[Rfam]
RNA sequence: AUAAAAACGAAUGAAUGACCUCAUAUAAAGUCGGGAAUAUGGCCCGAAAGUUUCUACCCGAUAACCGUAAAUUAUUGGACUAUGAGGGAAAGUGAUCGUUGA
Numbered sequence: 001a002u003a004a005a006a007a008c009g010a011a012u013g014a015a016u017g018a019c020c021u022c023a024u025a026u027a028a029a030g031u032c033g034g035g036a037a038u039a040u041g042g043c044c045c046g047a048a049a050g051u052u053u054c055u056a057c058c059c060g061a062u063a064a065c066c067g068u069a070a071a072u073u074a075u076u077g078g079a080c081u082a083u084g085a086g087g088g089a090a091a092g093u094g095a096u097c098g099u100u101g102a
Base pairs, nucleotide, nucleotide: 019087020086021085022084023083024082025081031047032046033045034044035043058078059077060076061075062074063073064072
Description
Rfam assigns this 102-nucleotide RNA from Metabacillus indicus to the family "Purine riboswitch aptamer". A search with the family's covariance model found it, with a score of 91 bits. The base pairs follow the family's consensus structure, which is taken from published work. Rfam links the family to the GO term purine nucleobase biosynthetic process.